[Rfam]
RNA sequence: GUCUGGCUGCGCGGUUUACGCAGGCCGGGCAAAUCUGUACGACGCCGCCCGGAACGACACGGGGCGGCACAGAUCCAUAAAGGAGGA
Numbered sequence: 001g002u003c004u005g006g007c008u009g010c011g012c013g014g015u016u017u018a019c020g021c022a023g024g025c026c027g028g029g030c031a032a033a034u035c036u037g038u039a040c041g042a043c044g045c046c047g048c049c050c051g052g053a054a055c056g057a058c059a060c061g062g063g064g065c066g067g068c069a070c071a072g073a074u075c076c077a078u079a080a081a082g083g084a085g086g087a
Base pairs, nucleotide, nucleotide: 001030002029003028004027005026006025007024008023009021010020011019033074034073035072036071037070038069044068045067046066047065048064049063050062

The record is an 87-nucleotide RNA, which matches "aspS RNA" in Rfam. The sequence is in the family's curated seed alignment. It is annotated as a cis-regulatory element.